[Rfam]
RNA: mir-503 microRNA precursor family
RNA sequence: UGCCCUAGCAGCGGGAACAGUACUGCAGUAAACCAUUAGUACUCUGGAGUAUUGCUUCUGCUGCCUGAGUA
Numbered sequence: 001u002g003c004c005c006u007a008g009c010a011g012c013g014g015g016a017a018c019a020g021u022a023c024u025g026c027a028g029u030a031a032a033c034c035a036u037u038a039g040u041a042c043u044c045u046g047g048a049g050u051a052u053u054g055c056u057u058c059u060g061c062u063g064c065c066u067g068a069g070u071a
Stems, first nucleotide, its partner, number of pairs: 002070002005067001008064009018054004023049002026046003031043001